[Rfam]
RNA sequence: CUCUUAUUCUGAGUAGGUGGAGGGACAGGCCCUAUGAAACCCAGCAACCGACAUGAAAGCGGAGUUUAUAAUCUGCUUAAAAUGAAAAGGUGCUAACCUGCAAGGUGAAAAUAACCUUGGACAAUAAGAG
Numbered sequence: 001c002u003c004u005u006a007u008u009c010u011g012a013g014u015a016g017g018u019g020g021a022g023g024g025a026c027a028g029g030c031c032c033u034a035u036g037a038a039a040c041c042c043a044g045c046a047a048c049c050g051a052c053a054u055g056a057a058a059g060c061g062g063a064g065u066u067u068a069u070a071a072u073c074u075g076c077u078u079a080a081a082a083u084g085a086a087a088a089g090g091u092g093c094u095a096a097c098c099u100g101c102a103a104g105g106u107g108a109a110a111a112u113a114a115c116c117u118u119g120g121a122c123a124a125u126a127a128g129a130g
Stems, first nucleotide, its partner, number of pairs: 001130008013042001016041003022032003026100004043094004048090002052084002101119006
RNA: SAM riboswitch aptamer (S box leader)